Annotation:
The family of this 88-nucleotide RNA sequence from Larimichthys crocea is "mir-204 microRNA precursor family". A search with the family's covariance model found it, with a score of 70 bits.
RNA sequence: AUGUGACCUGUGUGUUUCCCUUUGUCAUCCUAUGAUUGGAGCUGUCUGUAAGGCAGGGACAGCAAAGGAAAGCUCAGCCGUCACCUCU
Numbered sequence: 001a002u003g004u005g006a007c008c009u010g011u012g013u014g015u016u017u018c019c020c021u022u023u024g025u026c027a028u029c030c031u032a033u034g035a036u037u038g039g040a041g042c043u044g045u046c047u048g049u050a051a052g053g054c055a056g057g058g059a060c061a062g063c064a065a066a067g068g069a070a071a072g073c074u075c076a077g078c079c080g081u082c083a084c085c086u087c088u
Base pairs, nucleotide, nucleotide: 017070019068020067021066022065024063025062028059029058030057031056034054036052037051
For this family Rfam cites "The developmental miRNA profiles of zebrafish as determined by small RNA cloning" (Chen et al., Genes Dev, 2005). The family's consensus secondary structure was predicted with RNAalifold.